Shown here is a 93-nucleotide RNA from a Gemmatimonadota bacterium, a member of the family "Selenocysteine transfer RNA". The family's consensus secondary structure is taken from published work. The family is grouped with related families in Rfam's "tRNA clan". Its family is annotated with triplet codon-amino acid adaptor activity in the Gene Ontology.
[Rfam]
RNA sequence: GGGGGUGGAGGGGAACUGGUGUUCCCAGCGGUCUUCAAAACCGUGUAGCCCGGCUAGAACCCGGGUGGGUGGGUUCGAUUCCCACACGCUCCC
Dot-bracket structure: ((((((((..((((((....))))))((((((.......))))).).(((((.........)))))...((((.......))))).)))))))